Shown here is a 78-nucleotide RNA from Pelodiscus sinensis, a member of the family "Mammalian CPEB3 ribozyme".

RNA sequence: UGAUCUUUCUCUUUGGCCAUAGCAGAAGUUUUCAUCUCAUGGCCCUUGUAAGAGUCUAGUAAAUCUAUGAAUUUUGUU
Numbered sequence: 001u002g003a004u005c006u007u008u009c010u011c012u013u014u015g016g017c018c019a020u021a022g023c024a025g026a027a028g029u030u031u032u033c034a035u036c037u038c039a040u041g042g043c044c045c046u047u048g049u050a051a052g053a054g055u056c057u058a059g060u061a062a063a064u065c066u067a068u069g070a071a072u073u074u075u076g077u078u
Stems, first nucleotide, its partner, number of pairs: 015044004021078007028040002051066003055062001
Taxonomically the source falls in Pelodiscus (Eukaryota, Bilateria, Vertebrata, Gnathostomata).